Shown here is a 100-nucleotide RNA from Paraburkholderia sp. BL10I2N1, a member of the family "Guanidine-I riboswitch aptamer". NCBI's taxonomy places the organism under Bacteria, Pseudomonadati, Betaproteobacteria, Burkholderiales, Paraburkholderia. It scores 76 bits against the family's covariance model. About the family: This family represents a conserved RNA structure found upstream of the ykkC and yxkD genes in Bacillus subtilis and related genes in other bacteria. The pairing is the family consensus, mapped onto this sequence.
RNA sequence: GAAAUGGACGGCUAGUGUUCCGAUCUGCUGACGGCAGGUGCUGGUCCGAGAGCUGUCGACCUCAGGCGAGGUUACACGGCGGGAUAAAAGCCUGGGGGGA
Number, nucleotide and partner (000 for none) at each position: 001g000002a000003a000004a000005u000006g000007g057008a056009c055010g054011g053012c052013u000014a000015g047016u000017g000018u000019u000020c044021c043022g041023a039024u038025c037026u036027g035028c034029u000030g000031a000032c000033g000034g028035c027036a026037g025038g024039u023040g000041c022042u000043g021044g020045u000046c000047c015048g000049a000050g000051a000052g012053c011054u010055g009056u008057c007058g073059a072060c071061c070062u069063c068064a000065g000066g000067c000068g063069a062070g061071g060072u059073u058074a000075c095076a000077c098078g000079g000080c000081g093082g092083g091084a000085u000086a000087a000088a000089a000090g000091c083092c082093u081094g000095g075096g000097g000098g077099g000100a000